[Rfam]
RNA sequence: AAAAAAAAGGAGCAAUACCAAACUUCGUGAUAGAACAAGAAGUUUGGUAUUGCUCCUUUU
Numbered sequence: 001a002a003a004a005a006a007a008a009g010g011a012g013c014a015a016u017a018c019c020a021a022a023c024u025u026c027g028u029g030a031u032a033g034a035a036c037a038a039g040a041a042g043u044u045u046g047g048u049a050u051u052g053c054u055c056c057u058u059u060u
Stems, first nucleotide, its partner, number of pairs: 006059012021044002024041003028037002